pan motif: a 119-nucleotide sequence from Paenibacillus sp. J45TS6.
RNA sequence: GAGGCGGUAUUAAAUUAUUGCAAUUUGAACUGCACUCAAUAAGUUAGUCUGCUUUAAAAAUUAUUAUUUUAUAGGUUUGUUGGAUUCUGCUCUGAGCCGAAGAGGACCGAGACAGAAGG
Numbered sequence: 001g002a003g004g005c006g007g008u009a010u011u012a013a014a015u016u017a018u019u020g021c022a023a024u025u026u027g028a029a030c031u032g033c034a035c036u037c038a039a040u041a042a043g044u045u046a047g048u049c050u051g052c053u054u055u056a057a058a059a060a061u062u063a064u065u066a067u068u069u070u071a072u073a074g075g076u077u078u079g080u081u082g083g084a085u086u087c088u089g090c091u092c093u094g095a096g097c098c099g100a101a102g103a104g105g106a107c108c109g110a111g112a113c114a115g116a117a118g119g
Stems, first nucleotide, its partner, number of pairs: 001037003004033005010028007087115003090111003094107001097105002
A search with the family's covariance model found it, with a score of 46 bits. The family's RNA type in Rfam is cis-regulatory element. The organism belongs to Paenibacillus, within Bacteria.